[Rfam]
RNA sequence: AUACUCUGGUUUCUCUUCAAUGUCGAAUAAAUCUUUCGCCUUUUACUAAAGAUUUCCGUGGAGAGGAACACUCUAAGAGUCUAAAACUAAUUUUUUAGUCAGUCUUGUCGCAAGACUGG
Numbered sequence: 001a002u003a004c005u006c007u008g009g010u011u012u013c014u015c016u017u018c019a020a021u022g023u024c025g026a027a028u029a030a031a032u033c034u035u036u037c038g039c040c041u042u043u044u045a046c047u048a049a050a051g052a053u054u055u056c057c058g059u060g061g062a063g064a065g066g067a068a069c070a071c072u073c074u075a076a077g078a079g080u081c082u083a084a085a086a087c088u089a090a091u092u093u094u095u096u097a098g099u100c101a102g103u104c105u106u107g108u109c110g111c112a113a114g115a116c117u118g119g
Stems, first nucleotide, its partner, number of pairs: 003080004009069011029055008100118006
RNA: U5 spliceosomal RNA